RNA: TPP riboswitch aptamer (THI element)
RNA sequence: UCCCGUUAGUCGGGGUGCCGAAAAAUCGGCUGAGAAAAUACCCGGGAACCUGAUACAGUUAGCACUGGCGUAGGAAACUAAUUUUUAUUUUGC
Numbered sequence: 001u002c003c004c005g006u007u008a009g010u011c012g013g014g015g016u017g018c019c020g021a022a023a024a025a026u027c028g029g030c031u032g033a034g035a036a037a038a039u040a041c042c043c044g045g046g047a048a049c050c051u052g053a054u055a056c057a058g059u060u061a062g063c064a065c066u067g068g069c070g071u072a073g074g075a076a077a078c079u080a081a082u083u084u085u086u087a088u089u090u091u092g093c
Base pairs, nucleotide, nucleotide: 006081007080008079009078010077011044012043013042014041016038017030018029019028020027021026049074050073051072052071056067057066058065